[Rfam]
Nucleotides: 254
Stems, first nucleotide, its partner, number of pairs: 012036005020030002023223001025221002038091001040089002044084001046083003050078001051074004059068003110246001112245006132239005171198003176192002203234005209228005
Number, partner (000 for none) and nucleotide at each position: 001000c002000a003000a004000g005000u006000c007000c008000c009000a010000c011000a012036u013035g014034a015033g016032c017000a018000a019000a020030g021029c022000u023223u024000a025221g026220c027000c028000c029021g030020c031000a032016g033015c034014u035013c036012a037000u038091u039000a040089g041088u042000g043000a044084a045000a046083u047082c048081c049000a050078c051074a052073g053072g054071c055000a056000a057000a058000a059068c060067c061066g062000g063000u064000a065000a066061c067060g068059g069000a070000g071054g072053u073052c074051u075000g076000a077000g078050g079000c080000u081048g082047g083046a084044u085000g086000g087000a088041a089040c090000a091038a092000g093000a094000u095000u096000g097000c098000a099000g100000g101000c102000u103000c104000u105000g106000u107000a108000c109000u110246g111000a112245g113244c114243c115242c116241c117240g118000a119000a120000a121000a122000a123000u124000g125000u126000a127000u128000a129000g130000u131000u132239g133238u134237g135236g136235u137000c138000u139000a140000u141000a142000g143000g144000g145000a146000u147000a148000a149000a150000c151000c152000c153000u154000g155000c156000a157000a158000u159000u160000g161000c162000a163000g164000g165000g166000g167000g168000a169000a170000a171198g172197c173196c174000g175000a176192c177191g178000c179000a180000u181000u182000c183000c184000a185000g186000c187000g188000u189000g190000a191177c192176g193000g194000a195000a196173g197172g198171c199000a200000g201000c202000a203234g204233a205232c206231u207230u208000a209228c210227a211226g212225g213224u214000g215000c216000u217000a218000u219000g220026g221025c222000a223023a224213g225212c226211c227210u228209g229000a230207a231206a232205g233204u234203c235136a236135c237134c238133a239132c240117c241116g242115g243114g244113g245112u246110c247000u248000u249000c250000g251000a252000c253000c254000a
Annotation: The family of this 254-nucleotide RNA from Desulfobacter latus is "Group II catalytic intron D1-D4-6". The base pairs follow the family's consensus structure. For this family Rfam cites "The ins and outs of group II introns" (Bonen and Vogel, Trends Genet, 2001). The source organism's lineage runs through Bacteria, Pseudomonadati, Thermodesulfobacteriota, Desulfobacteraceae and Desulfobacter.